[Rfam]
RNA sequence: CAUGACGAGGUUCGAAACCAUCCCUCGAUAAAAAACUAAGGAGAG
Numbered sequence: 001c002a003u004g005a006c007g008a009g010g011u012u013c014g015a016a017a018c019c020a021u022c023c024c025u026c027g028a029u030a031a032a033a034a035a036c037u038a039a040g041g042a043g044a045g
Base pairs, nucleotide, nucleotide: 006027007026008025009024010023016037
Source information:
The record is a 45-nucleotide RNA from Lysinibacillus alkalisoli, which matches "PreQ1 (pre queuosine) riboswitch aptamer" in Rfam. About the family: This family is a bacterial riboswitch that binds to the metabolite preQ1, an intermediate in the biosynthesis of the modified nucleoside queuosine from GTP. One example of this riboswitch is located in the leader of the Bacillus subtilis ykvJKLM (queCDEF) operon which encodes four genes necessary for queuosine production. PreQ1 binding to the riboswitch aptamer is thought to induce premature transcription termination within the leader to down-regulate expression of these genes. Lineage of the source: Bacteria > Bacillota > Bacilli > Bacillaceae > Lysinibacillus.